[Rfam]
RNA sequence: GCAGCGCGGAUAAUGAGUUUACAUUUAUACUAGGUUGAAUUCUGAUCGACGAACCGACGAACCGUGUUUCUCCGGUUCGAACGAUGACCACGUGUGUCCCUCUCAAUUUGAGGCGCUGA
Numbered sequence: 001g002c003a004g005c006g007c008g009g010a011u012a013a014u015g016a017g018u019u020u021a022c023a024u025u026u027a028u029a030c031u032a033g034g035u036u037g038a039a040u041u042c043u044g045a046u047c048g049a050c051g052a053a054c055c056g057a058c059g060a061a062c063c064g065u066g067u068u069u070c071u072c073c074g075g076u077u078c079g080a081a082c083g084a085u086g087a088c089c090a091c092g093u094g095u096g097u098c099c100c101u102c103u104c105a106a107u108u109u110g111a112g113g114c115g116c117u118g119a
Stems, first nucleotide, its partner, number of pairs: 002118006
RNA: Small nucleolar RNA Z173
Organism: Oryza punctata